[Rfam]
RNA sequence: UUUAGUUUUUACUUGUGAACUCUUUGAGAUAAAAUGAGAGAUGGUUCAUGUUUAUGAAGCAUAAAUUAAUUAAUUAAUUACCAGUAUUAAACAGCAUGGUGUUUUCAUUUUUGGUUGCACCUUGUUACCUGUCUCCUGGUAUAUUU
Numbered sequence: 001u002u003u004a005g006u007u008u009u010u011a012c013u014u015g016u017g018a019a020c021u022c023u024u025u026g027a028g029a030u031a032a033a034a035u036g037a038g039a040g041a042u043g044g045u046u047c048a049u050g051u052u053u054a055u056g057a058a059g060c061a062u063a064a065a066u067u068a069a070u071u072a073a074u075u076a077a078u079u080a081c082c083a084g085u086a087u088u089a090a091a092c093a094g095c096a097u098g099g100u101g102u103u104u105u106c107a108u109u110u111u112u113g114g115u116u117g118c119a120c121c122u123u124g125u126u127a128c129c130u131g132u133c134u135c136c137u138g139g140u141a142u143a144u145u146u
Base pairs, nucleotide, nucleotide: 003061006058007057008056016048017047018046019045020044021041022040023039024038025037080140081139082138083137084136086134093126094125095124098121099120100119101118
RNA: small nucleolar RNA snoR137
Organism: Kingdonia uniflora